[Rfam]
RNA sequence: CGGGUGACAUCGCCGGAAUGGCUCCGGGCAGACGAGGGCGGGGGACCCAAUGCGGCCGCAUGCGGCCUUGGGGUGAAGCCGGUCCGCCGGCCGGGCACCUGACAGCCCGAACCCGACAGCUCACCUCGCAGGCGCAGGUCAGGAAAGGA
Numbered sequence: 001c002g003g004g005u006g007a008c009a010u011c012g013c014c015g016g017a018a019u020g021g022c023u024c025c026g027g028g029c030a031g032a033c034g035a036g037g038g039c040g041g042g043g044g045a046c047c048c049a050a051u052g053c054g055g056c057c058g059c060a061u062g063c064g065g066c067c068u069u070g071g072g073g074u075g076a077a078g079c080c081g082g083u084c085c086g087c088c089g090g091c092c093g094g095g096c097a098c099c100u101g102a103c104a105g106c107c108c109g110a111a112c113c114c115g116a117c118a119g120c121u122c123a124c125c126u127c128g129c130a131g132g133c134g135c136a137g138g139u140c141a142g143g144a145a146a147g148g149a
Stems, first nucleotide, its partner, number of pairs: 011134004019036001038129006048070002071114003079090004093108004
The record is a 149-nucleotide sequence from Nostocoides sp. HKS02, which matches "c-di-AMP riboswitch aptamer (ydaO/yuaA leader)" in Rfam. The match comes from Rfam's covariance-model search (61 bits). This family represents a conserved RNA structure found upstream of the ydaO and yuaA genes in Bacillus subtilis and related genes in other bacteria.